[Rfam]
RNA sequence: CAUCUCAUCAACUUGGCUGUGAAUUCUUUUUUUUAUUUCAAGAUAUCACAGCCACUUUGAUGAGCUUGG
Numbered sequence: 001c002a003u004c005u006c007a008u009c010a011a012c013u014u015g016g017c018u019g020u021g022a023a024u025u026c027u028u029u030u031u032u033u034u035a036u037u038u039c040a041a042g043a044u045a046u047c048a049c050a051g052c053c054a055c056u057u058u059g060a061u062g063a064g065c066u067u068g069g
Stems, first nucleotide, its partner, number of pairs: 005063007014054009025045001027043001
Shown here is a 69-nucleotide RNA from Oryctes borbonicus, a member of the family "mir-2 microRNA precursor family". The literature on the family includes a 2001 paper in Science by Lee and Ambros, "An extensive class of small RNAs in Caenorhabditis elegans". A search with the family's covariance model found it, with a score of 57 bits.